[Rfam]
Nucleotides: 103
Base pairs, nucleotide, nucleotide: 001103002102003101004100005099006098007097008096013043014042015041016040017039021032022031023030026077027076028075029074044069045068046067047066049065050064053060054059073095079091080090081089082088
Number, partner (000 for none) and nucleotide at each position: 001103a002102a003101c004100u005099u006098a007097u008096c009000c010000a011000g012000a013043g014042a015041g016040g017039u018000g019000g020000a021032g022031g023030g024000a025000u026077u027076u028075g029074g030023c031022c032021c033000u034000a035000u036000g037000a038000a039017a040016c041015c042014u043013c044069a045068g046067c047066a048000a049065c050064c051000g052000a053060u054059c055000g056000a057000u058000c059054g060053a061000c062000a063000c064050g065049g066047u067046g068045c069044u070000a071000a072000u073095u074029c075028c076027a077026a078000u079091a080090a081089g082088c083000g084000u085000a086000u087000g088082g089081c090080u091079u092000u093000g094000a095073a096008g097007a098006u099005a100004a101003g102002u103001u